[Rfam]
A member of the RNA family "Iron response element I" from Pipistrellus kuhlii, 35 nucleotides long. The base pairs follow the family's consensus structure, which is taken from published work. It scores 35 bits against the family's covariance model. By type it is a cis-regulatory element.

RNA sequence: CUGUCUCUUGCUUCAACAGUGUUUGGAUGAAAUAU
Numbered sequence: 001c002u003g004u005c006u007c008u009u010g011c012u013u014c015a016a017c018a019g020u021g022u023u024u025g026g027a028u029g030a031a032a033u034a035u
Base pairs, nucleotide, nucleotide: 002034003033004032006031008029010028012027013026014025015024016023017021
Dot-bracket structure: .(((.(.(.(.((((((...).))))))).)))).
The source organism's lineage runs through Eukaryota, Bilateria, Chordata, Dipnotetrapodomorpha and Pipistrellus.